[Rfam]
RNA: mir-320 microRNA precursor family
RNA sequence: AAACUGUUAUUCCCUCUCUUCCUGGUUCUUCCCAAAGUGGGGGAACGCUGGGUUAAGAGGGCAAAAAAAAAAAAAU
Number, nucleotide and partner (000 for none) at each position: 001a000002a000003a000004c000005u000006g000007u000008u000009a000010u000011u000012c000013c000014c059015u058016c057017u056018c000019u000020u000021c052022c051023u050024g049025g048026u000027u000028c000029u044030u043031c042032c041033c040034a000035a000036a000037g000038u000039g000040g033041g032042g031043g030044a029045a000046c000047g000048c025049u024050g023051g022052g021053u000054u000055a000056a017057g016058a015059g014060g000061g000062c000063a000064a000065a000066a000067a000068a000069a000070a000071a000072a000073a000074a000075a000076u000